[Rfam]
RNA sequence: ACGCCGGGCGUUAACCGUCCAUUAGGCUUUACGGAUGUUUACUAUGUUCAUCCAGUGAUCUGGAUUCUUGCCGGGUGGUUGGAGCCACCCUGUUUGACGCCUCCCUGUUAACUCCUGAGAGCCGCUUUACCGCGGCUCUUUUUUU
Numbered sequence: 001a002c003g004c005c006g007g008g009c010g011u012u013a014a015c016c017g018u019c020c021a022u023u024a025g026g027c028u029u030u031a032c033g034g035a036u037g038u039u040u041a042c043u044a045u046g047u048u049c050a051u052c053c054a055g056u057g058a059u060c061u062g063g064a065u066u067c068u069u070g071c072c073g074g075g076u077g078g079u080u081g082g083a084g085c086c087a088c089c090c091u092g093u094u095u096g097a098c099g100c101c102u103c104c105c106u107g108u109u110a111a112c113u114c115c116u117g118a119g120a121g122c123c124g125c126u127u128u129a130c131c132g133c134g135g136c137u138c139u140u141u142u143u144u145u
Stems, first nucleotide, its partner, number of pairs: 001047003005017002023041005051064004073090006096109004117140009
The family of this 145-nucleotide RNA sequence from Mesorhizobium australicum is "Alphaproteobacterial sRNA BjrC1505". It is annotated as a small RNA. Taxonomically the source falls in Mesorhizobium (Bacteria, Pseudomonadati, Pseudomonadota, Hyphomicrobiales). On this family, see Madhugiri et al., RNA Biol 2012: "Small RNAs of the Bradyrhizobium/Rhodopseudomonas lineage and their analysis".